This 102-nucleotide RNA sequence from Moellerella wisconsensis belongs to the Rfam family "Gammaprotebacteria rimP leader". Gene Ontology term of the family: regulation of gene expression. Taxonomically the source falls in Moellerella wisconsensis (Bacteria, Pseudomonadota, Enterobacterales, Morganellaceae).

RNA sequence: UGAACCCGUUGACACUACAGGGUCCAGUUACUUAAGCCCCGAAUUUCGGGGUUUUUUGUUAUUUGACAACCGAAUUAACUGGGCUUUUAUAGCCCUUUUUUU
Numbered sequence: 001u002g003a004a005c006c007c008g009u010u011g012a013c014a015c016u017a018c019a020g021g022g023u024c025c026a027g028u029u030a031c032u033u034a035a036g037c038c039c040c041g042a043a044u045u046u047c048g049g050g051g052u053u054u055u056u057u058g059u060u061a062u063u064u065g066a067c068a069a070c071c072g073a074a075u076u077a078a079c080u081g082g083g084c085u086u087u088u089a090u091a092g093c094c095c096u097u098u099u100u101u102u
Stems, first nucleotide, its partner, number of pairs: 034054008081095004
The literature on the family includes a 2010 paper in Genome Biol by Naville and Gautheret, "Premature terminator analysis sheds light on a hidden world of bacterial transcriptional attenuation".